Overview: Shown here is a 47-nucleotide RNA sequence from Bunias orientalis, a member of the family "Plastid-ccsA-ndhD-2 3UTR RNA". It is one of the family's seed sequences.
[Rfam]
RNA sequence: UUGUGAGAACCUUUUGAAUCAAGUAGUACAAUGAUUCAAAAGGUUCU
Number, nucleotide and partner (000 for none) at each position: 001u000002u000003g000004u000005g000006a047007g046008a045009a044010c043011c042012u041013u040014u039015u038016g037017a036018a035019u034020c033021a032022a000023g000024u000025a000026g000027u000028a000029c000030a000031a000032u021033g020034a019035u018036u017037c016038a015039a014040a013041a012042g011043g010044u009045u008046c007047u006
Plastid ccsA-ndhD-2 is a non-coding RNA (ncRNA) recognised in plastids. It was found in the three prime untranslated region (3UTR) of ccsA and ndhD genes, its 3UTR location suggests a role in transcript maturation. The base pairs follow the family's consensus structure, which was predicted with LocARNA.